[Rfam]
RNA: Actinobacteria sRNA Ms_IGR-5
Organism: Nocardia aurantiaca
RNA sequence: ACACAGGAAGGAGGUGGUUCGAGAAUGAUUUCAAGGACACGUGAGGUGGCUGCCAGCUAGGCGCUACCGCUGCAAUCGGAUUCCCGAUCGCGCGAGCCCUCGCGAAUCCAAGGCAGUCACCCGGCCCCCGAGUCACGGUCUUGUCCGACCGGACCUGCGUGAGAGUUGCAUCUCCGCGGGUACGACUCGGGGGCCGUACCCU
Number, nucleotide and partner (000 for none) at each position: 001a000002c000003a000004c000005a000006g000007g000008a000009a000010g000011g000012a000013g054014g053015u052016g051017g050018u049019u000020c000021g000022a000023g000024a000025a000026u000027g000028a000029u000030u000031u000032c000033a000034a000035g000036g000037a000038c000039a000040c000041g000042u000043g000044a000045g000046g000047u000048g000049g018050c017051u016052g015053c014054c013055a000056g103057c102058u000059a100060g099061g098062c000063g097064c096065u095066a000067c000068c092069g091070c090071u000072g000073c000074a000075a000076u000077c000078g000079g000080a000081u000082u000083c000084c000085c000086g000087a000088u000089c000090g070091c069092g068093c000094g000095a065096g064097c063098c061099c060100u059101c000102g057103c056104g000105a000106a000107u000108c000109c000110a000111a000112g000113g000114c000115a000116g000117u000118c000119a000120c000121c000122c196123g195124g194125c193126c192127c191128c190129c189130g188131a187132g186133u185134c184135a000136c151137g150138g149139u148140c147141u000142u000143g000144u000145c000146c000147g140148a139149c138150c137151g136152g000153a000154c000155c000156u000157g000158c000159g000160u000161g000162a000163g000164a000165g000166u000167u000168g000169c000170a000171u000172c000173u000174c000175c000176g000177c000178g000179g000180g000181u000182a000183c000184g134185a133186c132187u131188c130189g129190g128191g127192g126193g125194c124195c123196g122197u000198a000199c000200c000201c000202u000